[Rfam]
RNA sequence: GGCGUGGCUAGGGUAGCUCCCGAAAACCCGGACUCCGACCGGGCUGCCGCGCCAUCUUAACUAUCGG
Numbered sequence: 001g002g003c004g005u006g007g008c009u010a011g012g013g014u015a016g017c018u019c020c021c022g023a024a025a026a027c028c029c030g031g032a033c034u035c036c037g038a039c040c041g042g043g044c045u046g047c048c049g050c051g052c053c054a055u056c057u058u059a060a061c062u063a064u065c066g067g
Stems, first nucleotide, its partner, number of pairs: 001053008011021003027043005033067002